[Rfam]
RNA sequence: AUGCAAGCAUUCAGCGUGGGGGGGUCUGAGGUGGCCCCCUCAUUCCUACAGCGCUUGCCAGAGCAGCCCUGGGAUGGUUUGAGGCCUCUCCCCGCACCAACUGGGAAAGGUUAUAGAAAUUCCAGACACUG
Numbered sequence: 001a002u003g004c005a006a007g008c009a010u011u012c013a014g015c016g017u018g019g020g021g022g023g024g025u026c027u028g029a030g031g032u033g034g035c036c037c038c039c040u041c042a043u044u045c046c047u048a049c050a051g052c053g054c055u056u057g058c059c060a061g062a063g064c065a066g067c068c069c070u071g072g073g074a075u076g077g078u079u080u081g082a083g084g085c086c087u088c089u090c091c092c093c094g095c096a097c098c099a100a101c102u103g104g105g106a107a108a109g110g111u112u113a114u115a116g117a118a119a120u121u122c123c124a125g126a127c128a129c130u131g
Stems, first nucleotide, its partner, number of pairs: 003058006017042003022037005070124005085110003089106002093103002
This 131-nucleotide sequence from Psilopogon haemacephalus belongs to the Rfam family "Small nucleolar RNA SNORA9".
Its family is annotated with nucleolus and RNA processing in the Gene Ontology.
The base pairs follow the family's consensus structure, which was predicted with PFOLD.
Its Rfam clan is "SNORA9 clan".
By type it is an H/ACA-box small nucleolar RNA.
Rfam describes the family as follows. ACA9 is a member of the H/ACA class of snoRNA that guide the sites of modification of uridines to pseudouridines.